This 78-nucleotide sequence from Ornithorhynchus anatinus belongs to the Rfam family "mir-92 microRNA precursor family". Gene Ontology terms of the family: miRNA-mediated post-transcriptional gene silencing and RISC complex. The match comes from Rfam's covariance-model search (72 bits). A reference for the family is Mourelatos et al. (2002), "miRNPs: a novel class of ribonucleoproteins containing numerous microRNAs", Genes Dev.

[Rfam]
RNA sequence: CUUUCUAUGCAGGUUGGGAUCAGUUGCAAUGCUUUGUUUGUCUACAGUAUUGCGCUUGUUCCGGCCUGUUGAGGUUGC
Numbered sequence: 001c002u003u004u005c006u007a008u009g010c011a012g013g014u015u016g017g018g019a020u021c022a023g024u025u026g027c028a029a030u031g032c033u034u035u036g037u038u039u040g041u042c043u044a045c046a047g048u049a050u051u052g053c054g055c056u057u058g059u060u061c062c063g064g065c066c067u068g069u070u071g072a073g074g075u076u077g078c
Base pairs, nucleotide, nucleotide: 004074005073006072009069010068011067012066013065014064016062017061018060019059020058022056023055024054026053027052028051029050030049031048032047033046